[Rfam]
RNA: tRNA
RNA sequence: GACGUGAUGGCGCAGUAGCAGCGCAUCGGACUCUUCAUCCGACGGACGCCGGUGCGAAUCCGGCUCACGUAA
Numbered sequence: 001g002a003c004g005u006g007a008u009g010g011c012g013c014a015g016u017a018g019c020a021g022c023g024c025a026u027c028g029g030a031c032u033c034u035u036c037a038u039c040c041g042a043c044g045g046a047c048g049c050c051g052g053u054g055c056g057a058a059u060c061c062g063g064c065u066c067a068c069g070u071a072a
Stems, first nucleotide, its partner, number of pairs: 002070006010024004026042005048064005